[Rfam]
RNA: Group II catalytic intron D1-D4-4
RNA sequence: UUGCCUGUGAAAGUCCGAUCCGGGUUAGCUGCCAGGAGGCCCGGAAGCAGGCUGGCGGUGUCGUCUGGAAACGGGCGGGGCCGAAGCCCAGCGUCAAGCGCCCACUCUUGGCGCGUGCAACCGAACGGUCCGUAACGUGA
Numbered sequence: 001u002u003g004c005c006u007g008u009g010a011a012a013g014u015c016c017g018a019u020c021c022g023g024g025u026u027a028g029c030u031g032c033c034a035g036g037a038g039g040c041c042c043g044g045a046a047g048c049a050g051g052c053u054g055g056c057g058g059u060g061u062c063g064u065c066u067g068g069a070a071a072c073g074g075g076c077g078g079g080g081c082c083g084a085a086g087c088c089c090a091g092c093g094u095c096a097a098g099c100g101c102c103c104a105c106u107c108u109u110g111g112c113g114c115g116u117g118c119a120a121c122c123g124a125a126c127g128g129u130c131c132g133u134a135a136c137g138u139g140a
Base pairs, nucleotide, nucleotide: 020044021043022042023041024040051092052091053090054089055088056083057082058081059080061078065074067072098114099113100112101111102110117133118132